Record summary:
The family of this 461-nucleotide RNA from Origma solitaria is "Vertebrate telomerase RNA". It is annotated as a non-coding RNA gene. Its family is annotated with telomerase activity, telomere maintenance via telomerase and telomerase catalytic core complex in the Gene Ontology. Taxonomically the source falls in Origma (Eukaryota, Eumetazoa, Australaves, Passeriformes). It scores 140 bits against the family's covariance model. A reference for the family is Fragnet et al. (2005), "Comparative functional study of the viral telomerase RNA based on natural mutations", J Biol Chem. The family's consensus secondary structure is taken from published work.

[Rfam]
RNA sequence: CAGUGUCGGGGUGGACAGGCCCUGCGGGGAGCUAACCCUAAUGGCGGCUGCGCCCUGCGUGCCCGCCCGCUGUUUUACUCGCUGACUUUCAGCGGGCGGAGGGAGCGGCCCGGGGAAAGGGGGGAGGAAAGAAAUCCGGCCUCAAAAAUGUCAGCGCGGGGGGAUCUUCACCCCGGCCCACCCUGGGGUCCCCGUCCCUCACCUGCAUCACCGUGUCCCUCACCGGUGAUGCUCCCGCCGUCGCCCCUCGCGGAGGCCGCGGUCGGUCGGCUGAGCGCCACUGCCGCCGCGAAGAGCUCGUCUCUGUCAGCCUCGGCGGCGGCGGGGACCAGAGGGCCGAUCCGACCAGCCUGGGCGGCUUGGGGACCUCAUCAGAACAAAACGGGCGCGGCGCCGCCGGGCGCUGAGCAGCCGCGGCUCCCUCAGACGUGGGGUGCGCGGCCGGCGCUGCGCCGACACCC
Number, nucleotide and partner (000 for none) at each position: 001c000002a000003g000004u000005g177006u176007c175008g174009g173010g172011g171012u170013g169014g168015a167016c000017a000018g165019g000020c162021c161022c160023u159024g000025c000026g000027g000028g000029g000030a000031g000032c000033u000034a000035a000036c000037c000038c000039u000040a000041a000042u000043g000044g000045c000046g000047g000048c000049u000050g000051c000052g106053c105054c000055c103056u102057g000058c000059g000060u000061g000062c000063c000064c098065g097066c096067c095068c094069g093070c092071u091072g090073u000074u000075u000076u000077a000078c000079u000080c000081g155082c154083u153084g152085a151086c150087u148088u147089u146090c072091a071092g070093c069094g068095g067096g066097c065098g064099g000100a000101g000102g056103g055104a000105g053106c052107g000108g000109c000110c000111c000112g000113g000114g000115g000116a000117a000118a000119g000120g000121g000122g000123g000124g000125a000126g000127g000128a000129a000130a000131g000132a000133a000134a000135u000136c000137c000138g000139g000140c000141c000142u000143c000144a000145a000146a089147a088148a087149u000150g086151u085152c084153a083154g082155c081156g000157c000158g000159g023160g022161g021162g020163g000164a000165u018166c000167u015168u014169c013170a012171c011172c010173c009174c008175g007176g006177c005178c000179c000180a000181c000182c000183c000184u371185g370186g369187g368188g367189u366190c000191c000192c000193c000194g000195u000196c000197c000198c000199u000200c000201a000202c000203c000204u000205g000206c000207a000208u000209c000210a000211c000212c000213g000214u339215g338216u000217c336218c335219c334220u333221c332222a000223c000224c000225g000226g000227u000228g000229a000230u000231g000232c000233u000234c326235c325236c324237g323238c322239c321240g320241u000242c318243g317244c316245c315246c000247c000248u000249c000250g000251c000252g000253g000254a000255g000256g000257c000258c291259g290260c289261g288262g287263u000264c286265g285266g284267u283268c000269g279270g278271c277272u000273g000274a000275g000276c000277g271278c270279c269280a000281c000282u000283g267284c266285c265286g264287c262288c261289g260290c259291g258292a000293a305294g304295a303296g302297c000298u000299c000300g000301u000302c296303u295304c294305u293306g000307u000308c000309a000310g000311c000312c000313u000314c000315g245316g244317c243318g242319g000320c240321g239322g238323c237324g236325g235326g234327g000328a000329c000330c000331a000332g221333a220334g219335g218336g217337c000338c215339g214340a000341u000342c000343c000344g000345a000346c000347c000348a000349g000350c000351c000352u000353g000354g000355g000356c000357g000358g000359c000360u000361u000362g000363g000364g000365g000366a189367c188368c187369u186370c185371a184372u000373c000374a000375g000376a000377a000378c000379a000380a000381a000382a000383c000384g000385g000386g453387c452388g451389c450390g449391g448392c447393g446394c445395c444396g000397c000398c000399g000400g000401g000402c000403g000404c000405u000406g000407a000408g000409c000410a000411g000412c441413c440414g439415c438416g437417g000418c000419u434420c433421c432422c431423u000424c000425a000426g000427a000428c000429g000430u000431g422432g421433g420434g419435u000436g000437c416438g415439c414440g413441g412442c000443c000444g395445g394446c393447g392448c391449u390450g389451c388452g387453c386454c000455g000456a000457c000458a000459c000460c000461c000